[Rfam]
RNA sequence: UUGCACCUGUAUUAGUAAUGUCCUGCUUUCUUCUAUGAUGGUGGGAACUAAAGCAGGUGCAUAGAGGAAAUGCUGCUCUUGUAGUAGCGGCGGCCAGACAACCGUUGAGAGAUAGAUCCACAGAUGAACAAUCUUUCUGCUGUUUGUCUACUAAUUCUAUCUCACAUUC
Number, nucleotide and partner (000 for none) at each position: 001u000002u061003g060004c059005a058006c057007c000008u055009g054010u053011a000012u051013u050014a049015g048016u047017a042018a000019u040020g039021u038022c037023c000024u035025g034026c000027u000028u000029u000030c000031u000032u000033c000034u025035a024036u000037g022038a021039u020040g019041g000042u017043g000044g000045g000046a000047a016048c015049u014050a013051a012052a000053g010054c009055a008056g000057g006058u005059g004060c003061a002062u000063a000064g000065a000066g000067g000068a000069a000070a000071u000072g000073c000074u000075g000076c000077u000078c000079u000080u000081g000082u000083a000084g000085u000086a000087g000088c000089g000090g000091c000092g000093g000094c000095c000096a000097g000098a000099c000100a000101a000102c000103c000104g000105u000106u000107g000108a000109g163110a162111g161112a160113u159114a158115g157116a156117u000118c000119c000120a000121c000122a000123g000124a000125u000126g000127a145128a144129c000130a000131a000132u000133c000134u000135u000136u000137c000138u000139g000140c000141u000142g000143u000144u128145u127146g000147u000148c000149u000150a000151c000152u000153a000154a000155u000156u116157c115158u114159a113160u112161c111162u110163c109164a000165c000166a000167u000168u000169c000